[Rfam]
RNA sequence: CUUCAUCGCAUCCUCGCGACUAAUGACAACCCUGACCCGCCCAUGCGGAUAAAGCCUCUCAUUAGCCGCGCGAACCUCUGCAACAAAGAUCACACCCUGCAACAAUACAUUAGUUUCCAUAGAAUUGCUGCCAUAUGGUUGAAAAAAGGGGCCUUAAAAGGCCCCUUUUU
Dot-bracket structure: (((....(((....((((.(((((((................................)))))))...))))......)))....)))......(..........................).........................((((((......)))))).....

SraG RNA: a 170-nucleotide RNA from Buttiauxella agrestis. It is annotated as a small RNA. The source organism's lineage runs through Bacteria, Pseudomonadati, Gammaproteobacteria, Enterobacteriaceae and Buttiauxella agrestis. This RNA was discovered in E. coli during a large scale screen. Evidence was found for specific cleavage of this RNA. The family's consensus secondary structure was predicted with PFOLD.